[Rfam]
Nucleotides: 151
Base pairs, nucleotide, nucleotide: 002019003018004017005016006015007014028069029068030067031066032065033060034059035058036057037056039054040053041052042051043050044049084097085096086095087094088093098123099122100121107114108113125144126143127142128141129140130139
Number, partner (000 for none) and nucleotide at each position: 001000c002019c003018c004017g005016a006015u007014g008000u009000u010000c011000u012000g013000c014007c015006a016005u017004c018003g019002g020000u021000a022000u023000c024000c025000u026000a027000c028069c029068a030067g031066a032065a033060c034059c035058u036057g037056c038000g039054u040053u041052u042051a043050g044049a045000g046000c047000a048000a049044u050043c051042u052041a053040g054039g055000g056037g057036u058035g059034g060033g061000a062000a063000g064000c065032u066031u067030c068029u069028g070000g071000g072000a073000c074000a075000a076000u077000g078000u079000a080000g081000c082000c083000a084097c085096a086095c087094u088093c089000g090000u091000a092000a093088g094087a095086g096085u097084g098123g099122c100121a101000c102000c103000c104000a105000a106000u107114c108113c109000g110000u111000g112000a113108g114107g115000a116000a117000a118000g119000g120000a121100u122099g123098c124000g125144a126143c127142u128141g129140c130139u131000a132000g133000c134000a135000u136000c137000a138000a139130a140129g141128c142127g143126g144125u145000u146000a147000g148000g149000a150000a151000c

The family of this 151-nucleotide sequence from Ktedonobacteria bacterium brp13 is "Group II catalytic intron D1-D4-7".